The record is a 599-nucleotide part of an RNA from Tenacibaculum jejuense, which matches "Bacterial large subunit ribosomal RNA" in Rfam. It scores 2752 bits against the family's covariance model.

Nucleotides: 599
Base pairs, nucleotide, nucleotide: 005022006021007020008019009018025595026594027593028592029591030590031589032588034587035586036585038582039581046416047415048414049413051412052411053408054407055406056405057404059213060212061211062210066205067204069202070201071200072199075178077176078175079174080173081172082171083170084169085168086167087166088165089164090163092161102160103159104158105157106156109143110142111141118137119136120135121134122133123132124131125130182193183192184191216228217227218226219225229251230250231249232248233247234246252397254354255353260312261311262310263309264308265307266292267291269287270286271285272284273283293302294301317340318339319338320337323334324333325332342351343350344349365391366390367389368388369387370386371385373384374383425466426465427464429463430460431459432458433457434456435455436454440450441449477552478550479549480548481547482544483541484540485539486538487537490515491514493510494509495508496507497506498505517531518530519529520528521527558576559575560574561573562571563570564569
Number, partner (000 for none) and nucleotide at each position: 001000u002000a003000g004000u005022a006021u007020c008019g009018g010000u011000g012000a013000a014000g015000a016000u017000g018009c019008c020007g021006a022005u023000u024000a025595c026594c027593c028592g029591c030590a031589g032588c033000g034587g035586g036585a037000c038582g039581a040000a041000a042000a043000g044000a045000c046416c047415c048414c049413g050000u051412g052411a053408a054407c055406c056405u057404u058000u059213a060212c061211u062210a063000u064000a065000g066205c067204u068000u069202c070201g071200u072199a073000u074000u075178g076000a077176c078175u079174u080173u081172g082171g083170a084169u085168a086167a087166g088165u089164a090163a091000u092161g093000u094000g095000u096000a097000g098000g099000a100000u101000a102160g103159g104158u105157c106156g107000g108000a109143g110142a111141c112000u113000u114000u115000g116000a117000a118137g119136c120135a121134g122133u123132g124131u125130c126000g127000c128000u129000a130125g131124g132123c133122a134121u135120u136119g137118u138000g139000g140000a141111g142110u143109c144000a145000a146000c147000c148000u149000u150000g151000a152000a153000a154000u155000a156106c157105g158104a159103c160102c161092c162000u163090u164089u165088g166087c167086u168085u169084a170083u171082c172081u173080a174079g175078a176077g177000c178075c179000u180000a181000a182193c183192u184191c185000a186000g187000u188000g189000a190000u191184g192183a193182g194000a195000a196000c197000a198000g199072u200071g201070c202069g203000u204067g205066g206000u207000g208000g209000g210062u211061a212060g213059u214000u215000u216228g217227a218226c219225u220000g221000g222000g223000g224000u225219g226218g227217u228216c229251g230250c231249c232248u233247c234246c235000a236000a237000a238000a239000g240000a241000g242000u243000a244000a245000c246234g247233g248232a249231g250230g251229c252397u253000u254354c255353u256000a257000a258000a259000g260312g261311u262310u263309c264308c265307c266292u267291c268000a269287g270286c271285a272284c273283g274000c275000u276000u277000g278000g279000u280000a281000a282000c283273c284272g285271u286270g287269c288000g289000u290000a291267g292266a293302g294301u295000g296000c297000a298000a299000u300000g301294g302293c303000a304000u305000a306000a307265g308264g309263g310262a311261g312260c313000u314000u315000g316000a317340c318339u319338g320337a321000g322000a323334g324333a325332c326000a327000u328000a329000c330000a331000g332325g333324u334323c335000g336000a337320u338319c339318a340317g341000g342351u343350a344349c345000g346000a347000a348000a349344g350343u351342a352000g353255a354254g355000c356000a357000u358000a359000g360000u361000g362000a363000u364000c365391c366390g367389g368388u369387g370386g371385u372000u373384c374383c375000g376000c377000a378000u379000g380000g381000a382000a383374g384373g385371g386370c387369c388368a389367u390366c391365g392000c393000u394000c395000a396000a397252a398000g399000g400000a401000u402000a403000a404057a405056a406055g407054g408053u409000a410000c411052u412051c413049c414048g415047g416046g417000g418000a419000u420000a421000a422000c423000a424000g425466g426465c427464u428000g429463a430460u431459c432458u433457c434456c435455c436454c437000c438000a439000a440450g441449a442000g443000c444000u445000c446000a447000c448000a449441u450440c451000g452000a453000c454436g455435g456434g457433g458432g459431g460430g461000u462000u463429u464427g465426g466425c467000a468000c469000c470000u471000c472000g473000a474000u475000g476000u477552c478550g479549g480548c481547u482544c483541g484540u485539c486538a487537c488000a489000u490515c491514c492000u493510g494509g495508g496507g497506c498505u499000g500000g501000a502000g503000a504000a505498g506497g507496u508495c509494c510493c511000a512000a513000g514491g515490g516000u517531u518530g519529g520528g521527c522000u523000g524000u525000u526000c527521g528520c529519c530518c531517a532000u533000u534000a535000a536000a537487g538486u539485g540484g541483c542000a543000c544482g545000c546000g547481a548480g549479c550478u551000g552477g553000g554000u555000u556000c557000a558576g559575a560574a561573c562571g563570u564569c565000g566000u567000g568000a569564g570563a571562c572000a573561g574560u575559u576558c577000g578000g579000u580000c581039u582038c583000u584000a585036u586035c587034u588032g589031c590030u591029g592028u593027g594026g595025g596000c597000g598000u599000u